Small nucleolar RNA SNORD116: a 92-nucleotide sequence from Oryctolagus cuniculus. The organism belongs to Oryctolagus, within Eukaryota. A search with the family's covariance model found it, with a score of 81 bits. On this family, see Cavaille et al., Proc Natl Acad Sci U S A 2000: "Identification of brain-specific and imprinted small nucleolar RNA genes exhibiting an unusual genomic organization".

[Rfam]
RNA sequence: GGGCUGAUGAUGACUCCUGCAAAUACAUUCCUUCAUAGCUGAACAAAAUGAGUGAAAACCCUAUACUGUCUUUCUCAUCACGACUAAGGUCC
Numbered sequence: 001g002g003g004c005u006g007a008u009g010a011u012g013a014c015u016c017c018u019g020c021a022a023a024u025a026c027a028u029u030c031c032u033u034c035a036u037a038g039c040u041g042a043a044c045a046a047a048a049u050g051a052g053u054g055a056a057a058a059c060c061c062u063a064u065a066c067u068g069u070c071u072u073u074c075u076c077a078u079c080a081c082g083a084c085u086a087a088g089g090u091c092c
Base pairs, nucleotide, nucleotide: 001092002091003090004089005088026054027053028052029051030050032046033045